This 81-nucleotide RNA from Luteibacter anthropi belongs to the Rfam family "Pseudomonas sRNA P9". By type it is a non-coding RNA gene. For this family Rfam cites "Identification of 17 Pseudomonas aeruginosa sRNAs and prediction of sRNA-encoding genes in 10 diverse pathogens using the bioinformatic tool sRNAPredict2" (Livny et al., Nucleic Acids Res, 2006). Taxonomically the source falls in Luteibacter (Bacteria, Pseudomonadati, Gammaproteobacteria, Rhodanobacteraceae). A search with the family's covariance model found it, with a score of 49 bits. The base pairs follow the family's consensus structure, which was predicted with RNAalifold. From the family's description: This small RNA (sRNA) was computationally identified in the genome of the opportunistic pathogen Pseudomonas aeruginosa and its expression verified by northern blot analysis. P9 appears to be conserved in several Pseudomonas species in addition to Bordetella spp. In both Pseudomonas and Bordetella spp P9 appears to be located upstream of a predicted threonine dehydratase gene. P9 has a predicted Rho independent terminator at the 3' end but the function of P9 is unknown.
Nucleotides: 081
Stems, first nucleotide, its partner, number of pairs: 011031002014028004057080009
Number, partner (000 for none) and nucleotide at each position: 001000u002000c003000g004000a005000u006000u007000a008000u009000u010000a011031c012030c013000c014028c015027c016026a017025u018000c019000c020000c021000a022000a023000c024000g025017a026016u027015g028014g029000u030012g031011g032000g033000u034000u035000g036000a037000u038000c039000g040000c041000g042000c043000a044000c045000g046000u047000c048000a049000g050000g051000u052000g053000a054000c055000c056000g057080a058079a059078a060077c061076c062075c063074g064073c065072c066000c067000c068000a069000g070000g071000a072065g073064g074063c075062g076061g077060g078059u079058u080057u081000u